Shown here is a 131-nucleotide RNA from Intrasporangium chromatireducens, a member of the family "c-di-AMP riboswitch aptamer (ydaO/yuaA leader)". Taxonomically the source falls in Intrasporangium chromatireducens (Bacteria, Micrococcales, Intrasporangiaceae, Intrasporangium). The match comes from Rfam's covariance-model search (46 bits).
Nucleotides: 131
Stems, first nucleotide, its partner, number of pairs: 001011003012130006022048002049115003058089006093109004
Number, partner (000 for none) and nucleotide at each position: 001011u002010c003009c004000u005000g006000g007000c008000a009003g010002g011001a012130g013129u014128g015127g016126g017125g018000g019000a020000c021000c022048c023047a024000u025000c026000u027000c028000c029000c030000g031000g032000u033000c034000g035000u036000u037000c038000c039000g040000a041000c042000g043000u044000c045000c046000u047023u048022g049115g050114g051113g052000u053000g054000a055000a056000g057000g058089c059088c060087u061086c062085g063084c064000g065000a066000u067000g068000a069000g070000c071000a072000g073000a074000c075000g076000c077000g078000c079000u080000c081000g082000c083000a084063g085062c086061g087060g088059g089058g090000g091000c092000c093109g094108g095107g096106c097000a098000g099000c100000a101000c102000c103000u104000c105000c106096g107095c108094c109093c110000g111000a112000a113051c114050c115049c116000g117000a118000c119000a120000g121000c122000u123000a124000a125017c126016u127015c128014c129013g130012c131000a